Shown here is a 183-nucleotide RNA from Sinobaca qinghaiensis, a member of the family "Lysine riboswitch aptamer". The match comes from Rfam's covariance-model search (110 bits). The organism belongs to Sinobaca, within Bacteria.

RNA sequence: AGUGAGGUUAGAGGUGCAAAUGCUAUCAUUAAUCCGCUGGAGAAACUUGAGUUUCCGGGAAAGCUGACGAAAGGAGUAUUUGCCGAAGCUUCUAUUAUGCUCAAGAAUUAGAAGCUGGUUUCGUAUUUAAUAGAUGCGGAACUGUCAUGCAGCCGUCUGGCUGCAUGGAGGGCUAUCUCACGC
Numbered sequence: 001a002g003u004g005a006g007g008u009u010a011g012a013g014g015u016g017c018a019a020a021u022g023c024u025a026u027c028a029u030u031a032a033u034c035c036g037c038u039g040g041a042g043a044a045a046c047u048u049g050a051g052u053u054u055c056c057g058g059g060a061a062a063g064c065u066g067a068c069g070a071a072a073g074g075a076g077u078a079u080u081u082g083c084c085g086a087a088g089c090u091u092c093u094a095u096u097a098u099g100c101u102c103a104a105g106a107a108u109u110a111g112a113a114g115c116u117g118g119u120u121u122c123g124u125a126u127u128u129a130a131u132a133g134a135u136g137c138g139g140a141a142c143u144g145u146c147a148u149g150c151a152g153c154c155g156u157c158u159g160g161c162u163g164c165a166u167g168g169a170g171g172g173c174u175a176u177c178u179c180a181c182g183c
Stems, first nucleotide, its partner, number of pairs: 006178002009175003016083009033067002036064003087116008096107001098105001117143011145168007